[Rfam]
RNA sequence: AAUUAGCCCUGAUGGAAGCGGCAUCCUUUUUUGUUUAGAUACUUCGACAAGCUCAGUAUGACAAACAAAAAAGAUAUAGCGUACAGCAGGAUUGGCU
Dot-bracket structure: ........(((.((...((...(((...((((((((..........................))))))))..)))...))...)).)))........
Notes
Flavo-1 RNA: a 97-nucleotide RNA from Flavobacterium haoranii. By type it is a small RNA. A search with the family's covariance model found it, with a score of 71 bits. The organism belongs to Flavobacterium, within Bacteria.